c-di-GMP-II-GAG riboswitch aptamer: an 85-nucleotide RNA sequence. Its Rfam clan is "c-di-GMP_II riboswitch clan". The sequence is in the family's curated seed alignment. Its family is annotated with regulation of gene expression and cyclic-di-GMP binding in the Gene Ontology.
[Rfam]
Nucleotides: 085
Base pairs, nucleotide, nucleotide: 001085004082007079008078009077010076011075013060014059015058022054024052025051026050027049029047038072039071041067042066043065044064
Number, partner (000 for none) and nucleotide at each position: 001085g002000c003000g004082g005000a006000c007079g008078u009077g010076g011075g012000g013060g014059g015058c016000u017000u018000g019000g020000a021000c022054g023000c024052g025051c026050g027049g028000c029047c030000u031000u032000c033000a034000c035000u036000c037000u038072g039071g040000c041067c042066g043065c044064u045000u046000g047029g048000a049027c050026c051025g052024c053000u054022c055000c056000g057000a058015g059014c060013c061000a062000c063000u064044a065043g066042c067041g068000a069000g070000a071039c072038c073000g074000a075011c076010c077009c078008g079007c080000c081000c082004c083000a084000u085001c